[Rfam]
RNA sequence: CGCGCACGUCCUUAAUAUAAACAGGUCAUUCCUGGAGGUUGAAAAGCGGAUGAAAUUUCCGGCGUGCGCU
Numbered sequence: 001c002g003c004g005c006a007c008g009u010c011c012u013u014a015a016u017a018u019a020a021a022c023a024g025g026u027c028a029u030u031c032c033u034g035g036a037g038g039u040u041g042a043a044a045a046g047c048g049g050a051u052g053a054a055a056u057u058u059c060c061g062g063c064g065u066g067c068g069c070u
Stems, first nucleotide, its partner, number of pairs: 002069009022034004038047003048060003

The family of this 70-nucleotide RNA is "RAGATH-21 RNA". Pairs were carried over by alignment from the consensus structure, which is taken from published work.